[Rfam]
RNA: c-di-AMP riboswitch aptamer (ydaO/yuaA leader)
RNA sequence: GACCACAAACCACCUGGAUGGAGGCGGGGGACCCACCGGUCCACCGAAGGACCCGGGGCUGCCAGCGGCCCCUUGGGGUGAAGCCGAGAUCGGGCAACCGAGACCGGCCGGGUGACCUCUCCCACCCGAACCCGACAGCUGACCUCGCGGGCGCCGACGAGAGGACCU
Numbered sequence: 001g002a003c004c005a006c007a008a009a010c011c012a013c014c015u016g017g018a019u020g021g022a023g024g025c026g027g028g029g030g031a032c033c034c035a036c037c038g039g040u041c042c043a044c045c046g047a048a049g050g051a052c053c054c055g056g057g058g059c060u061g062c063c064a065g066c067g068g069c070c071c072c073u074u075g076g077g078g079u080g081a082a083g084c085c086g087a088g089a090u091c092g093g094g095c096a097a098c099c100g101a102g103a104c105c106g107g108c109c110g111g112g113u114g115a116c117c118u119c120u121c122c123c124a125c126c127c128g129a130a131c132c133c134g135a136c137a138g139c140u141g142a143c144c145u146c147g148c149g150g151g152c153g154c155c156g157a158c159g160a161g162a163g164g165a166c167c168u
Stems, first nucleotide, its partner, number of pairs: 004023001006021001024148006034075002076133003084107003110127004